[Rfam]
RNA sequence: UUGGGUUGCUGAAUUAGAGAUCGGCGCCCGCCUUUUCAUCUUUUAAUUUGGAGUUCUAUAAUGUCUCUAAGUGUUGAAGCAAAAGCUAAAAUCGUUGCUGACUUCGGUCGUGGCGCA
Numbered sequence: 001u002u003g004g005g006u007u008g009c010u011g012a013a014u015u016a017g018a019g020a021u022c023g024g025c026g027c028c029c030g031c032c033u034u035u036u037c038a039u040c041u042u043u044u045a046a047u048u049u050g051g052a053g054u055u056c057u058a059u060a061a062u063g064u065c066u067c068u069a070a071g072u073g074u075u076g077a078a079g080c081a082a083a084a085g086c087u088a089a090a091a092u093c094g095u096u097g098c099u100g101a102c103u104u105c106g107g108u109c110g111u112g113g114c115g116c117a
Stems, first nucleotide, its partner, number of pairs: 007026006047071007
Ribosomal S15 leader: a 117-nucleotide sequence from Enterobacillus tribolii. The base pairs follow the family's consensus structure, which is taken from published work. The literature on the family includes a 1996 paper in Biochimie by Benard et al., "Pseudoknot and translational control in the expression of the S15 ribosomal protein". Rfam describes the family as follows. The E. coli Ribosomal S15 gene 5' UTR can form two alternative structures. One that is a series of three hairpins, The other includes a pseudoknot.